A member of the RNA family "SAM (S-adenosyl methionine) riboswitch aptamer" from Cellulomonas persica, 115 nucleotides long. Its Rfam clan is "SAM clan". The family's consensus secondary structure is taken from published work. The match comes from Rfam's covariance-model search (99 bits). NCBI's taxonomy places the organism under Bacteria, Actinomycetota, Actinomycetes, Micrococcales, Cellulomonas.
RNA sequence: GGUCACGAGCGUCUCCGACAAGCCCCGGCUGGGAGACCGGCAACCCUCCGUCCGUGGCGGGGUGCCCCGGGUGAGGACCAGGUCGUCGCGCACCGCGCGGCGGCAAGCACGGCGG
Number, nucleotide and partner (000 for none) at each position: 001g079002g078003u077004c076005a000006c000007g000008a000009g038010c000011g037012u036013c035014u034015c033016c032017g000018a000019c000020a000021a030022g029023c000024c000025c000026c000027g000028g000029c022030u021031g000032g016033g015034a014035g013036a012037c011038c009039g066040g065041c064042a000043a000044c062045c061046c060047u000048c057049c056050g000051u000052c000053c000054g000055u000056g049057g048058c000059g000060g046061g045062g044063u000064g041065c040066c039067c000068c000069g000070g000071g000072u000073g000074a000075g000076g004077a003078c002079c001080a000081g000082g104083u103084c102085g101086u100087c099088g098089c097090g096091c095092a000093c000094c000095g091096c090097g089098c088099g087100g086101c085102g084103g083104c082105a000106a000107g000108c000109a000110c000111g000112g000113c000114g000115g000